Shown here is a 79-nucleotide RNA from Sus scrofa, a member of the family "mir-15 microRNA precursor family". Rfam 15.1 lists 2,045 matches to the family in 649 species. Gene Ontology terms of the family: RISC complex and miRNA-mediated post-transcriptional gene silencing. For this family Rfam cites "Identification of novel genes coding for small expressed RNAs" (Lagos-Quintana et al., Science, 2001). The family's consensus secondary structure was predicted with RNAalifold. Rfam's curators write: This family represents the related mir-15a and mir-15b sequences. In humans miR-15a and miR-16 are clustered within 0.5 kb at 13q14. This region has been shown to be deleted in more than half of B cell chronic lymphocytic leukaemias (CLL). Both miR-15a and miR-16 are deleted or down-regulated in more than two thirds of CLL cases.
RNA sequence: UUGGAGUAAAGUAGCAGCACAUAAUGGUUUGUGGAUUUUGAAAAGGUGCAGGCCAUAUUGUGCUGCCUCAAAAAUACAA
Numbered sequence: 001u002u003g004g005a006g007u008a009a010a011g012u013a014g015c016a017g018c019a020c021a022u023a024a025u026g027g028u029u030u031g032u033g034g035a036u037u038u039u040g041a042a043a044a045g046g047u048g049c050a051g052g053c054c055a056u057a058u059u060g061u062g063c064u065g066c067c068u069c070a071a072a073a074a075u076a077c078a079a
Stems, first nucleotide, its partner, number of pairs: 001079003011069001014066008024056010